[Rfam]
RNA sequence: UUUCCCUUUUGACUACCACAAUUUAUCCUAAUAGAGUUUAGUGGCUAUGUUUAAGGGCUAGAUGAAAAGUGCUGUGAUCUGAAGAGGGGGAGCUUUUCCCUGACUUUCCUCUAUAUGAAAUGGCUAAACACAAAAAA
Numbered sequence: 001u002u003u004c005c006c007u008u009u010u011g012a013c014u015a016c017c018a019c020a021a022u023u024u025a026u027c028c029u030a031a032u033a034g035a036g037u038u039u040a041g042u043g044g045c046u047a048u049g050u051u052u053a054a055g056g057g058c059u060a061g062a063u064g065a066a067a068a069g070u071g072c073u074g075u076g077a078u079c080u081g082a083a084g085a086g087g088g089g090g091a092g093c094u095u096u097u098c099c100c101u102g103a104c105u106u107u108c109c110u111c112u113a114u115a116u117g118a119a120a121u122g123g124c125u126a127a128a129c130a131c132a133a134a135a136a137a
Stems, first nucleotide, its partner, number of pairs: 004057004016044004071124004089112004
RNA: Small nucleolar RNA SNORA29